[Rfam]
RNA: TPP riboswitch aptamer (THI element)
RNA sequence: CCUUUGCCGAAGGGGAGUCCCGUGGAGCGGGGCUGAGAGGCCGGAAUACGCCCCGGCGACCCUUGGAACCUGAUCCGGGUCAUUCCGGCGAAGGGAUCGGAACCUUCGUUCCC
Numbered sequence: 001c002c003u004u005u006g007c008c009g010a011a012g013g014g015g016a017g018u019c020c021c022g023u024g025g026a027g028c029g030g031g032g033c034u035g036a037g038a039g040g041c042c043g044g045a046a047u048a049c050g051c052c053c054c055g056g057c058g059a060c061c062c063u064u065g066g067a068a069c070c071u072g073a074u075c076c077g078g079g080u081c082a083u084u085c086c087g088g089c090g091a092a093g094g095g096a097u098c099g100g101a102a103c104c105u106u107c108g109u110u111c112c113c
Stems, first nucleotide, its partner, number of pairs: 007100004011063004017033005040057005069094003075088004